[Rfam]
RNA: mir-7563 microRNA precursor family
Organism: Ameiurus melas
RNA sequence: ACCGCGUGCUUACCUACUGUAUAGUAGGUGAAAUACAUGUAUCUCGGCUACCAUAUAGUAGGUAAGUACACGGUUC
Numbered sequence: 001a002c003c004g005c006g007u008g009c010u011u012a013c014c015u016a017c018u019g020u021a022u023a024g025u026a027g028g029u030g031a032a033a034u035a036c037a038u039g040u041a042u043c044u045c046g047g048c049u050a051c052c053a054u055a056u057a058g059u060a061g062g063u064a065a066g067u068a069c070a071c072g073g074u075u076c
Base pairs, nucleotide, nucleotide: 001074002073003072004071006069007068008067009066010065011064012063013062014061015060017058018057019056020055021054022053024051025050026049027048029046030045031044033042034041035040